Record summary
Shown here is a 201-nucleotide RNA sequence from Medicago truncatula, a member of the family "MIR2619 microRNA precursor family". A search with the family's covariance model found it, with a score of 155 bits. Rfam links the family to the GO terms RISC complex and miRNA-mediated post-transcriptional gene silencing. Taxonomically the source falls in Medicago (Eukaryota, eudicotyledons, Pentapetalae, Hologalegina). Pairs were carried over by alignment from the consensus structure, which was predicted with RNAalifold.
RNA sequence: AAACAGCCUCCUAUGUAUUGAAUCUUUAGCAGUUUUGGCCCCGAAAGCCACUUUUGACUUAGUCUUCGCUGGCGUGGCACCUACAUCCCUUAAGUGAGGUGCCAUGUGUUGACCAUUGUGGGUGCCACGUCAGCGAAGACUAAGUUAAAAGUGGCCUUGGGGGCCAAAACUGCCAAAGAUCCAAUACAUAGAGGACUGUUU
Number, nucleotide and partner (000 for none) at each position: 001a201002a200003a000004c198005a197006g196007c000008c194009u000010c000011c000012u190013a189014u188015g187016u186017a185018u184019u183020g182021a000022a180023u179024c178025u177026u176027u175028a000029g173030c172031a171032g170033u169034u168035u167036u166037g165038g164039c163040c162041c161042c160043g000044a158045a157046a000047g000048c000049c000050a000051c000052u000053u000054u000055u000056g000057a000058c000059u000060u000061a000062g000063u000064c000065u000066u000067c000068g000069c000070u000071g000072g130073c129074g000075u127076g126077g125078c124079a123080c122081c121082u120083a000084c000085a000086u000087c000088c000089c000090u000091u000092a000093a000094g000095u000096g000097a000098g000099g000100u000101g000102c000103c000104a000105u000106g000107u000108g000109u000110u000111g000112a000113c000114c000115a000116u000117u000118g000119u000120g082121g081122g080123u079124g078125c077126c076127a075128c000129g073130u072131c000132a000133g000134c000135g000136a000137a000138g000139a000140c000141u000142a000143a000144g000145u000146u000147a000148a000149a000150a000151g000152u000153g000154g000155c000156c000157u045158u044159g000160g042161g041162g040163g039164c038165c037166a036167a035168a034169a033170c032171u031172g030173c029174c000175a027176a026177a025178g024179a023180u022181c000182c020183a019184a018185u017186a016187c015188a014189u013190a012191g000192a000193g000194g008195a000196c006197u005198g004199u000200u002201u001